[Rfam]
Nucleotides: 097
Stems, first nucleotide, its partner, number of pairs: 004091005010083005015075001017074004023067002026064003034059003042051003
Number, partner (000 for none) and nucleotide at each position: 001000u002000g003000u004091c005090g006089g007088u008087c009000c010083c011082c012081u013080c014079g015075c016000a017074a018073c019072g020071a021000u022000a023067c024066g025000c026064u027063g028062c029000g030000a031000a032000c033000c034059c035058c036057g037000c038000c039000a040000g041000g042051c043050c044049c045000g046000g047000a048000a049044g050043g051042g052000a053000g054000c055000a056000a057036c058035g059034g060000u061000a062028g063027c064026a065000c066024c067023g068000g069000a070000u071020u072019c073018g074017u075015g076000u077000g078000c079014c080013g081012g082011g083010g084000u085000g086000u087008g088007g089006c090005u091004g092000a093000u094000a095000c096000g097000a
The family of this 97-nucleotide RNA sequence from Methylomagnum ishizawai is "Bacterial small signal recognition particle RNA". The match comes from Rfam's covariance-model search (74 bits). About the family: The signal recognition particle (SRP) is a universally conserved ribonucleoprotein involved in the co-translational targeting of proteins to membranes. On this family, see Rosenblad et al., Nucleic Acids Res 2003: "SRPDB: Signal Recognition Particle Database". Pairs were carried over by alignment from the consensus structure, which is taken from published work. The source organism's lineage runs through Bacteria, Pseudomonadati, Pseudomonadota, Methylococcaceae and Methylomagnum.